This 111-nucleotide sequence from Nereida ignava belongs to the Rfam family "Methylobacterium-1 RNA".
RNA sequence: UAAGGUGGAAGGGCUGUUAAAAUAUUCACACCACGAUGAGGGCAAUGCGACACUGCAACCCUCAAUGAUUGAUCAAAGUCGUUCCAUUGGCUGAUCGAUUAUACCGCUGGU
Number, nucleotide and partner (000 for none) at each position: 001u000002a000003a000004g032005g031006u030007g029008g000009a000010a025011g000012g023013g000014c000015u000016g000017u000018u000019a000020a000021a000022a000023u012024a000025u010026u000027c000028a000029c007030a006031c005032c004033a000034c000035g000036a000037u000038g063039a062040g061041g060042g059043c000044a000045a000046u000047g000048c000049g000050a000051c000052a000053c000054u000055g000056c000057a000058a000059c042060c041061c040062u039063c038064a000065a102066u101067g100068a099069u098070u097071g096072a095073u094074c093075a000076a000077a092078g091079u090080c089081g000082u000083u000084c000085c000086a000087u000088u000089g080090g079091c078092u077093g074094a073095u072096c071097g070098a069099u068100u067101a066102u065103a000104c000105c000106g000107c000108u000109g000110g000111u000
Lineage of the source: Bacteria > Pseudomonadota > Alphaproteobacteria > Roseobacteraceae > Nereida. Pairs were carried over by alignment from the consensus structure, which is taken from published work. A search with the family's covariance model found it, with a score of 56 bits.